[Rfam]
RNA sequence: ACGUCCUGCCUCGUGAUCGUCUUCUCAACCUUCACUGCGGCAGGCGGAUGAACGAAGAGCCCUCGCGAGGACGUGACUCGCGGGGGCUCUUC
Numbered sequence: 001a002c003g004u005c006c007u008g009c010c011u012c013g014u015g016a017u018c019g020u021c022u023u024c025u026c027a028a029c030c031u032u033c034a035c036u037g038c039g040g041c042a043g044g045c046g047g048a049u050g051a052a053c054g055a056a057g058a059g060c061c062c063u064c065g066c067g068a069g070g071a072c073g074u075g076a077c078u079c080g081c082g083g084g085g086g087c088u089c090u091u092c
Base pairs, nucleotide, nucleotide: 002046003045005044006043007042008041009040010039013035014034015033016032019029020028054092055091056090057089058088059087060086061085062084063083064082065081066080067079068078069077
RNA: sodF sRNA